About this RNA: The record is a 64-nucleotide RNA sequence, which matches "Selenocysteine insertion sequence 1" in Rfam. About the family: The incorporation of selenocysteine into a protein sequence is directed by an in-frame UGA codon (usually a stop codon) within the coding region of the mRNA. Selenoprotein mRNAs contain a conserved secondary structure in the 3' UTR that is required for the distinction of UGA stop from UGA selenocysteine. The selenocysteine insertion sequence (SECIS) is around 60 nt in length and adopts a hairpin structure which is sufficiently well-defined and conserved to act as a computational screen for selenoprotein genes. By type it is a cis-regulatory element. The sequence is in the family's curated seed alignment.
RNA sequence: GUCACUGCAUGAUCCGCUCUGGUCAAACCCUUCCAGGCCAGCCAGAGUGGGGAUGGUCUGUGAC
Numbered sequence: 001g002u003c004a005c006u007g008c009a010u011g012a013u014c015c016g017c018u019c020u021g022g023u024c025a026a027a028c029c030c031u032u033c034c035a036g037g038c039c040a041g042c043c044a045g046a047g048u049g050g051g052g053a054u055g056g057u058c059u060g061u062g063a064c
Stems, first nucleotide, its partner, number of pairs: 001064005014050010029037003